[Rfam]
RNA sequence: AACAAGCGACAGGGGAGCGCCGAACCGCAGCAUGCUGCCGGGACGGGCGCUGAGAGUGCGGACCGCCGCAGACCCUCGAACCUGAUCCGGCUAGUACCGGCGAAGGGAGUCGAGUUCUCAGAGUG
Numbered sequence: 001a002a003c004a005a006g007c008g009a010c011a012g013g014g015g016a017g018c019g020c021c022g023a024a025c026c027g028c029a030g031c032a033u034g035c036u037g038c039c040g041g042g043a044c045g046g047g048c049g050c051u052g053a054g055a056g057u058g059c060g061g062a063c064c065g066c067c068g069c070a071g072a073c074c075c076u077c078g079a080a081c082c083u084g085a086u087c088c089g090g091c092u093a094g095u096a097c098c099g100g101c102g103a104a105g106g107g108a109g110u111c112g113a114g115u116u117c118u119c120a121g122a123g124u125g
Stems, first nucleotide, its partner, number of pairs: 007112004011076004017050005057070005081106003087100004
A member of the RNA family "TPP riboswitch aptamer (THI element)" from Arthrobacter sp. MN05-02, 125 nucleotides long.
NCBI's taxonomy places the organism under Bacteria, Actinomycetota, Actinomycetes, Micrococcales, Arthrobacter.
Rfam links the family to the GO term thiamine pyrophosphate binding.